[Rfam]
Nucleotides: 181
Base pairs, nucleotide, nucleotide: 003178004177005176006175007174008173009172010171011170012168013167014166015165017164018163019162033151034150035149037148038147039146040145041144042142059128060127061126063124064123065122066121067120068119070118074117075116076115077114080112086106091100092099
Number, partner (000 for none) and nucleotide at each position: 001000g002000u003178c004177c005176c006175c007174c008173u009172g010171c011170g012168g013167u014166g015165u016000u017164c018163g019162u020000u021000u022000a023000g024000g025000c026000u027000a028000a029000a030000u031000a032000u033151u034150c035149u036000u037148u038147g039146a040145a041144c042142c043000a044000a045000u046000a047000u048000u049000u050000a051000u052000g053000u054000a055000a056000g057000c058000a059128g060127g061126u062000u063124g064123u065122g066121g067120c068119u069000g070118u071000a072000u073000u074117g075116a076115g077114u078000a079000c080112u081000g082000u083000u084000g085000u086106g087000c088000g089000c090000g091100u092099c093000c094000u095000u096000c097000a098000c099092g100091g101000a102000u103000g104000u105000a106086c107000c108000u109000g110000a111000u112080g113000u114077g115076c116075u117074c118070a119068a120067g121066c122065u123064g124063c125000a126061a127060c128059c129000g130000u131000c132000u133000u134000g135000g136000a137000c138000c139000u140000c141000a142042g143000u144041g145040u146039u147038c148037a149035a150034g151033a152000u153000g154000a155000u156000a157000g158000c159000c160000u161000g162019a163018c164017g165015g166014c167013a168012c169000c170011c171010g172009c173008g174007g175006g176005g177004g178003g179000c180000c181000u

The record is a 181-nucleotide RNA from Sulfurimicrobium lacus, which matches "6S / SsrS RNA" in Rfam.
A search with the family's covariance model found it, with a score of 62 bits.
The family's RNA type in Rfam is non-coding RNA gene.